[Rfam]
RNA sequence: AUGUGCGAAUGAUAACUACUGACGAAAGAGUCAUCGACUCAGUUAGUGGUUGGAUGUACUCACAU
Numbered sequence: 001a002u003g004u005g006c007g008a009a010u011g012a013u014a015a016c017u018a019c020u021g022a023c024g025a026a027a028g029a030g031u032c033a034u035c036g037a038c039u040c041a042g043u044u045a046g047u048g049g050u051u052g053g054a055u056g057u058a059c060u061c062a063c064a065u
Stems, first nucleotide, its partner, number of pairs: 001065005014051010029039003
Record summary:
Rfam assigns this 65-nucleotide RNA sequence from Equus caballus to the family "Selenocysteine insertion sequence 1". The organism belongs to Equus, within Eukaryota.